[Rfam]
This 74-nucleotide sequence from Danio rerio belongs to the Rfam family "mir-122 microRNA precursor family". The sequence is in the family's curated seed alignment. Rfam links the family to the GO terms miRNA-mediated post-transcriptional gene silencing and RISC complex. The family has 32 seed sequences and 666 matches in Rfam 15.1.
RNA sequence: CAGAGCUGUGGAGUGUGACAAUGGUGUUUGUAUCAUCUGUCGUCAAACGCCAUUAUCACACUAAAUAGCCACGG
Numbered sequence: 001c002a003g004a005g006c007u008g009u010g011g012a013g014u015g016u017g018a019c020a021a022u023g024g025u026g027u028u029u030g031u032a033u034c035a036u037c038u039g040u041c042g043u044c045a046a047a048c049g050c051c052a053u054u055a056u057c058a059c060a061c062u063a064a065a066u067a068g069c070c071a072c073g074g
Stems, first nucleotide, its partner, number of pairs: 012062007020054011
Dot-bracket structure: ...........(((((((.(((((((((((.............))))))))))).)))))))............